[Rfam]
The family of this 487-nucleotide part of an RNA from Amniculicola lignicola is "Eukaryotic large subunit ribosomal RNA".
Its Rfam clan is "LSU clan".
RNA sequence: UAGAACAAUGUAGAUAAGGGAAGUCAGCAAAAUAGAUCCAUAACUUUAGGAAAAGGAUUAGCUCUAAGGGUUGGGUGCGUUAGGCCUUAGGAGGAAGCCUCUGGCGCAGAUUGGCACUAACCACAAGGUAGGCGCCUUUCAGCGCUAGGGUGUAGACGCCCUUAGCAGGUUUCAGCCGUCCAGCGCACGCUUAACAACCAACUUAGAACUAGUACAGACAAGGGGAAUCUAACUGUCUAAUUAAAACAUAGCAUUGCAAUGGCCAGAAAGUAGUGUUAACGCAAUGUGAUUUCUGCCCAGUGCUCUAAAUGUCAAAGCAAAGAGAUUCAACCAAGCGCAGGUAAACGGCAGGAGUAACUAUAACUCUCUUAAGGUAGCCAAAUGCCUCAUCAUCUAAUUAGUGACGCGCAUAAAUGGAUUAACAAGAUUCCUACUGUCCCUAUCUACUAUCUAGCAAAACUACAGCCAAGGGAACGGGCUUAGCAGA
Numbered sequence: 001u002a003g004a005a006c007a008a009u010g011u012a013g014a015u016a017a018g019g020g021a022a023g024u025c026a027g028c029a030a031a032a033u034a035g036a037u038c039c040a041u042a043a044c045u046u047u048a049g050g051a052a053a054a055g056g057a058u059u060a061g062c063u064c065u066a067a068g069g070g071u072u073g074g075g076u077g078c079g080u081u082a083g084g085c086c087u088u089a090g091g092a093g094g095a096a097g098c099c100u101c102u103g104g105c106g107c108a109g110a111u112u113g114g115c116a117c118u119a120a121c122c123a124c125a126a127g128g129u130a131g132g133c134g135c136c137u138u139u140c141a142g143c144g145c146u147a148g149g150g151u152g153u154a155g156a157c158g159c160c161c162u163u164a165g166c167a168g169g170u171u172u173c174a175g176c177c178g179u180c181c182a183g184c185g186c187a188c189g190c191u192u193a194a195c196a197a198c199c200a201a202c203u204u205a206g207a208a209c210u211a212g213u214a215c216a217g218a219c220a221a222g223g224g225g226a227a228u229c230u231a232a233c234u235g236u237c238u239a240a241u242u243a244a245a246a247c248a249u250a251g252c253a254u255u256g257c258a259a260u261g262g263c264c265a266g267a268a269a270g271u272a273g274u275g276u277u278a279a280c281g282c283a284a285u286g287u288g289a290u291u292u293c294u295g296c297c298c299a300g301u302g303c304u305c306u307a308a309a310u311g312u313c314a315a316a317g318c319a320a321a322g323a324g325a326u327u328c329a330a331c332c333a334a335g336c337g338c339a340g341g342u343a344a345a346c347g348g349c350a351g352g353a354g355u356a357a358c359u360a361u362a363a364c365u366c367u368c369u370u371a372a373g374g375u376a377g378c379c380a381a382a383u384g385c386c387u388c389a390u391c392a393u394c395u396a397a398u399u400a401g402u403g404a405c406g407c408g409c410a411u412a413a414a415u416g417g418a419u420u421a422a423c424a425a426g427a428u429u430c431c432u433a434c435u436g437u438c439c440c441u442a443u444c445u446a447c448u449a450u451c452u453a454g455c456a457a458a459a460c461u462a463c464a465g466c467c468a469a470g471g472g473a474a475c476g477g478g479c480u481u482a483g484c485a486g487a
Stems, first nucleotide, its partner, number of pairs: 001453004010447007018439003035059005044049001060210002063207006069199005075188007083180001084166002090160002097153002100150001101148007109140002113136003117132002120129003223432007230424001234248003251287007262274002265271001291418003295349003300346002302342003310337003320327002351367005369373001390404004466483001468481003